[Rfam]
RNA sequence: GUCGGCUACGGGGACAUGAGGCCGGUGACGGUGGGAGGCAAGAUCGUCGGCUCGCUGUGCGCUAUUGCCGGCGUGCUGACCAUUGCCUUGCCCGUGCCCGUCAUCGUGUCGAAC
Numbered sequence: 001g002u003c004g005g006c007u008a009c010g011g012g013g014a015c016a017u018g019a020g021g022c023c024g025g026u027g028a029c030g031g032u033g034g035g036a037g038g039c040a041a042g043a044u045c046g047u048c049g050g051c052u053c054g055c056u057g058u059g060c061g062c063u064a065u066u067g068c069c070g071g072c073g074u075g076c077u078g079a080c081c082a083u084u085g086c087c088u089u090g091c092c093c094g095u096g097c098c099c100g101u102c103a104u105c106g107u108g109u110c111g112a113a114c
Stems, first nucleotide, its partner, number of pairs: 001114002005110001007108005013102003018097001021095002037077004049063003
RNA: Potassium channel RNA editing signal